RNA sequence: CGGUAAUGUCUCCUCACCGGUAUCAAUGGAGGCACUCGGUCACACUGUGGGUUCAGCAGGACAAUCUGAACCUUAGACGCAACUUGUCGUCAAUAGUGUGGUGUGAGGACGGGUUAGAUGCCCG
Numbered sequence: 001c002g003g004u005a006a007u008g009u010c011u012c013c014u015c016a017c018c019g020g021u022a023u024c025a026a027u028g029g030a031g032g033c034a035c036u037c038g039g040u041c042a043c044a045c046u047g048u049g050g051g052u053u054c055a056g057c058a059g060g061a062c063a064a065u066c067u068g069a070a071c072c073u074u075a076g077a078c079g080c081a082a083c084u085u086g087u088c089g090u091c092a093a094u095a096g097u098g099u100g101g102u103g104u105g106a107g108g109a110c111g112g113g114u115u116a117g118a119u120g121c122c123c124g
Stems, first nucleotide, its partner, number of pairs: 001019004007034007035107004039102008049073008076091004110124005
A member of the RNA family "epsC RNA" from Domibacillus mangrovi, 124 nucleotides long.
By type it is a cis-regulatory element.
It scores 113 bits against the family's covariance model.
Pairs were carried over by alignment from the consensus structure, which is taken from published work.